Fluoride riboswitch aptamer (crcB RNA motif): a 71-nucleotide RNA sequence from Candidatus Enterococcus clewellii. Rfam links the family to the GO terms response to fluoride and positive regulation of gene expression. The match comes from Rfam's covariance-model search (44 bits).

[Rfam]
RNA sequence: GUCUAUGAGGGCGAUGGUGUUCGCCGAUAAAUAUUUAUUUUGAGGAAUAAAUUGAUGACGCCUACCAAACA
Number, nucleotide and partner (000 for none) at each position: 001g000002u000003c000004u000005a000006u000007g000008a000009g000010g025011g024012c023013g022014a000015u000016g062017g061018u060019g059020u058021u057022c013023g012024c011025c010026g000027a000028u000029a000030a000031a000032u000033a052034u051035u050036u049037a048038u047039u046040u045041u000042g000043a000044g000045g040046a039047a038048u037049a036050a035051a034052u033053u000054g000055a000056u000057g021058a020059c019060g018061c017062c016063u000064a000065c000066c000067a000068a000069a000070c000071a000